[Rfam]
RNA sequence: UCCUCGCUCAAAGAAUCGCAUUCAAAGCUUACGCACAGAAGUAAAACAAUAAUCCUUCAUGGGUUAUUGCUUUUUCUCUUCAAACCAUCACUCCUAGCUUUGGGAGAAAGUCCCCGGACACCCUGCGCCCUCGUCUUCAAACCGCGAGGGUUCUUUAUGUUUUUUAAUUAAAACAAGCCAGGCAAUGCGGAAACGCGCCGCCAUAGAAGCAUUUUUCAUUGCGGCUUACGCCUUUUCUCUUCCCUUCUCUCCUCUCUUCUUUUAGAAGAGGCGGAGAGAGGGCUCGCCUCUUUUUAGCCCGACUCUACAGAAGAGAUUCUGCAGAGGAAACAAUGGCGGUUAGAUGGGGGUGAGGUUUUUUUCGAACGAGGGAUAGGUUGCCAUUCGUCGUGGUUCGAUAGUCAUGCGAUUGCUUGAUUUUCACCCAUGUAUUUAUUUAUAUGUGUGAUAUCGAGUAACUCGAUGGGGCUUAUUCUUGAGGCGAGG
Dot-bracket structure: .((((((((((..((((((..(((((((.........((((..(((..........................)))..))))...............)))))).)...[[[.[[[[........................((((.....))))................................................................................................................................(((....(.((.(....(.(...................................................((((...)))).....).)..).)))..))).......................)))))).((((((...............................)))))).........]]]]]]]....)))).))))))